[Rfam]
This 100-nucleotide RNA sequence from Arenibacter certesii belongs to the Rfam family "SAM riboswitch aptamer (S box leader)".

RNA sequence: AUUUUAUAAAGAAGUAGCGAGAGACAGGCUCUAUGACCUACUGGCAACCGUCAAAAUGAAAAGGUGCCAAUUCCUGACUCCGAAAGGAGGAAUAUAAAAA
Numbered sequence: 001a002u003u004u005u006a007u008a009a010a011g012a013a014g015u016a017g018c019g020a021g022a023g024a025c026a027g028g029c030u031c032u033a034u035g036a037c038c039u040a041c042u043g044g045c046a047a048c049c050g051u052c053a054a055a056a057u058g059a060a061a062a063g064g065u066g067c068c069a070a071u072u073c074c075u076g077a078c079u080c081c082g083a084a085a086g087g088a089g090g091a092a093u094a095u096a097a098a099a100a
Stems, first nucleotide, its partner, number of pairs: 002099007013042005021031003025076004043068004048064002051059003072092001078089004
Annotation:
The source organism's lineage runs through Bacteria, Flavobacteriia, Flavobacteriales, Flavobacteriaceae and Arenibacter. It scores 73 bits against the family's covariance model.